RNA sequence: GAUGCAGGUCACCUUAUCGCUGUUUCAGUAAUGAAAGAGAGGAAAGUCCGGACACCGUAGUGCAGUAUAGCGGGUAACACCCGUCCGUCGAAAGGCGAGGACAAGUGCAACAGAAAGAAUGUACAGGUAAUGCUGUAGUGAAAUCAGGUAAACUCUAUGCGGUGCAACGCCAUGUAAACCAGCUUUUGAGGGUUGCACGCCCAAUGCUGGAGGGUAGGCGGUUCGAUCUUGUUAGUAAUGACAAGGCUAGAUAAAUGAUAAGGGCUUCUACAUAGAAGACAGAAUCCGGCUUAUGACCUGCUUCUUUU
Numbered sequence: 001g002a003u004g005c006a007g008g009u010c011a012c013c014u015u016a017u018c019g020c021u022g023u024u025u026c027a028g029u030a031a032u033g034a035a036a037g038a039g040a041g042g043a044a045a046g047u048c049c050g051g052a053c054a055c056c057g058u059a060g061u062g063c064a065g066u067a068u069a070g071c072g073g074g075u076a077a078c079a080c081c082c083g084u085c086c087g088u089c090g091a092a093a094g095g096c097g098a099g100g101a102c103a104a105g106u107g108c109a110a111c112a113g114a115a116a117g118a119a120u121g122u123a124c125a126g127g128u129a130a131u132g133c134u135g136u137a138g139u140g141a142a143a144u145c146a147g148g149u150a151a152a153c154u155c156u157a158u159g160c161g162g163u164g165c166a167a168c169g170c171c172a173u174g175u176a177a178a179c180c181a182g183c184u185u186u187u188g189a190g191g192g193u194u195g196c197a198c199g200c201c202c203a204a205u206g207c208u209g210g211a212g213g214g215u216a217g218g219c220g221g222u223u224c225g226a227u228c229u230u231g232u233u234a235g236u237a238a239u240g241a242c243a244a245g246g247c248u249a250g251a252u253a254a255a256u257g258a259u260a261a262g263g264g265c266u267u268c269u270a271c272a273u274a275g276a277a278g279a280c281a282g283a284a285u286c287c288g289g290c291u292u293a294u295g296a297c298c299u300g301c302u303u304c305u306u307u308u
Stems, first nucleotide, its partner, number of pairs: 001304002004301008012263007020039002023036005044292003048289005053164004060198004065160005070084005085099001086097004100155002105153002107149002122137005168220004179210005190202004227246008
RNA: Bacterial RNase P class A
Organism: Aquimarina brevivitae